The family of this 206-nucleotide RNA sequence from Deinococcus maricopensis is "FMN riboswitch aptamer (RFN element)". The match comes from Rfam's covariance-model search (71 bits). Its family is annotated with FMN binding in the Gene Ontology.
RNA sequence: GUCCUCUUUCGGGGCGGGGUGAAACUCCCCACCGGCAGUGAUCGCCCGCGUGCGGGCGUCAGCCUGCGAAGCCCGGUCAAACUGCACCACGACCAGGCCCGACUCAGUGAAACCCUGAGGCCGACGGUGAAGCCACAACGCGCGCGCACCCGCACUCCGCGGCGUGCCCGCCCGCUGGAGCGCAGUCCGGAUGGAAGAAGGAGGGA
Numbered sequence: 001g002u003c004c005u006c007u008u009u010c011g012g013g014g015c016g017g018g019g020u021g022a023a024a025c026u027c028c029c030c031a032c033c034g035g036c037a038g039u040g041a042u043c044g045c046c047c048g049c050g051u052g053c054g055g056g057c058g059u060c061a062g063c064c065u066g067c068g069a070a071g072c073c074c075g076g077u078c079a080a081a082c083u084g085c086a087c088c089a090c091g092a093c094c095a096g097g098c099c100c101g102a103c104u105c106a107g108u109g110a111a112a113c114c115c116u117g118a119g120g121c122c123g124a125c126g127g128u129g130a131a132g133c134c135a136c137a138a139c140g141c142g143c144g145c146g147c148a149c150c151c152g153c154a155c156u157c158c159g160c161g162g163c164g165u166g167c168c169c170g171c172c173c174g175c176u177g178g179a180g181c182g183c184a185g186u187c188c189g190g191a192u193g194g195a196a197g198a199a200g201g202a203g204g205g206a
Base pairs, nucleotide, nucleotide: 003204004203005202006201007200008199009198010197017029018028019027033123034122035067036066037065038064062121063120071098072097103119104118105117106116107115125189126188127187